[Rfam]
RNA sequence: UAAAAGGUUUUCUAGGGUUCCGGGCUGCCAGGUGCAGCCGUCUGGUCCGAGAGAGAACGCAUCGGGUGCCAGUGCCGGUGUACACGGCGGGACAAAAGCCCGGGAGAA
Numbered sequence: 001u002a003a004a005a006g007g008u009u010u011u012c013u014a015g016g017g018u019u020c021c022g023g024g025c026u027g028c029c030a031g032g033u034g035c036a037g038c039c040g041u042c043u044g045g046u047c048c049g050a051g052a053g054a055g056a057a058c059g060c061a062u063c064g065g066g067u068g069c070c071a072g073u074g075c076c077g078g079u080g081u082a083c084a085c086g087g088c089g090g091g092a093c094a095a096a097a098g099c100c101c102g103g104g105a106g107a108a
Stems, first nucleotide, its partner, number of pairs: 007058006015048002020045002022042001023039006059081007083103001085106001089101003
RNA: Guanidine-I riboswitch aptamer